[Rfam]
RNA sequence: UCACAUGUUUUCUAGGGUUCCGCGGAGAUUAUGAUCCGGCCAGGUCCGAGAGAGAACGCACAGCAUCCGCUGUGUACACGGAGGGACAAAAGCCCGGGAGGA
Numbered sequence: 001u002c003a004c005a006u007g008u009u010u011u012c013u014a015g016g017g018u019u020c021c022g023c024g025g026a027g028a029u030u031a032u033g034a035u036c037c038g039g040c041c042a043g044g045u046c047c048g049a050g051a052g053a054g055a056a057c058g059c060a061c062a063g064c065a066u067c068c069g070c071u072g073u074g075u076a077c078a079c080g081g082a083g084g085g086a087c088a089a090a091a092g093c094c095c096g097g098g099a100g101g102a
Base pairs, nucleotide, nucleotide: 007057008056009055010054011053012052015047016046020044021043022041023038024037025036026035058075059074060073061072062071063070064069077097079100083095084094085093